[Rfam]
RNA sequence: CACGGCUGGUGGCGUUCAUCCUGUUAACGGGCUGUGCGCUAUCGUCUUGAUAAAGACAUACAGAUACCUGGCCCGCCGCAAGCGGGCUUUUUUUU
Number, nucleotide and partner (000 for none) at each position: 001c000002a000003c000004g000005g000006c000007u000008g000009g043010u000011g000012g040013c000014g037015u036016u000017c034018a033019u000020c031021c030022u029023g028024u000025u000026a000027a000028c023029g022030g021031g020032c000033u018034g017035u000036g015037c014038g000039c000040u012041a000042u000043c009044g000045u000046c000047u000048u000049g000050a000051u000052a000053a000054a000055g000056a000057c000058a000059u000060a000061c000062a000063g000064a000065u000066a000067c000068c000069u000070g088071g087072c086073c085074c084075g083076c082077c000078g000079c000080a000081a000082g076083c075084g074085g073086g072087c071088u070089u000090u000091u000092u000093u000094u000095u000
RNA: Tryptophan operon leader